[Rfam]
RNA sequence: GAUUGCGGUGAUGACCCAGCAAAUUCAAGCUCGACCGACCUGAAUGCAGGCUUCUCUUUUUACAGAGAUCUCUGCGUGUCGAUAGCCCGCUGAACUGGGCAAUC
Dot-bracket structure: ((((((............................................................................................))))))
Shown here is a 104-nucleotide sequence from Kalanchoe fedtschenkoi, a member of the family "Small nucleolar RNA Z107/R87".
Rfam links the family to the GO terms nucleolus and RNA processing.
For this family Rfam cites "Identification of 66 box C/D snoRNAs in Arabidopsis thaliana: extensive gene duplications generated multiple isoforms predicting new ribosomal RNA 2'-O-methylation sites" (Barneche et al., J Mol Biol, 2001).
The organism belongs to Kalanchoe, within Eukaryota.
It is annotated as a C/D-box small nucleolar RNA.
Rfam 15.1 lists 783 matches to the family in 221 species.